A member of the RNA family "MIR5387 microRNA precursor family" from Sorghum bicolor, 94 nucleotides long.
Taxonomically the source falls in Sorghum (Eukaryota, Mesangiospermae, commelinids, Andropogoneae).
The match comes from Rfam's covariance-model search (82 bits).
RNA sequence: UCGUAACAUGAACCGGUGCUAAAGGGUCCUGCCCAACGGCUACUGACACAUGCUGUCAGGGCAAGAACCCUUUAGCACCGGUUCGUGUUCCCAA
Numbered sequence: 001u002c003g004u005a006a007c008a009u010g011a012a013c014c015g016g017u018g019c020u021a022a023a024g025g026g027u028c029c030u031g032c033c034c035a036a037c038g039g040c041u042a043c044u045g046a047c048a049c050a051u052g053c054u055g056u057c058a059g060g061g062c063a064a065g066a067a068c069c070c071u072u073u074a075g076c077a078c079c080g081g082u083u084c085g086u087g088u089u090c091c092c093a094a
Stems, first nucleotide, its partner, number of pairs: 003091001005089023029065002032060002036056002044048001